Source information: tRNA: a 74-nucleotide RNA from Zostera marina.
RNA sequence: ACUGGAAAAGCUCAGUUGGUUAGAGCAUGUGGAUGUUAACAACAAGGUCGAAGUUUCGACCCCUUCUUCUAGUG
Numbered sequence: 001a002c003u004g005g006a007a008a009a010g011c012u013c014a015g016u017u018g019g020u021u022a023g024a025g026c027a028u029g030u031g032g033a034u035g036u037u038a039a040c041a042a043c044a045a046g047g048u049c050g051a052a053g054u055u056u057c058g059a060c061c062c063c064u065u066c067u068u069c070u071a072g073u074g
Stems, first nucleotide, its partner, number of pairs: 001073007010026004028044003032040001050066004
Lineage of the source: Eukaryota > Embryophyta > Magnoliopsida > Alismatales > Zostera.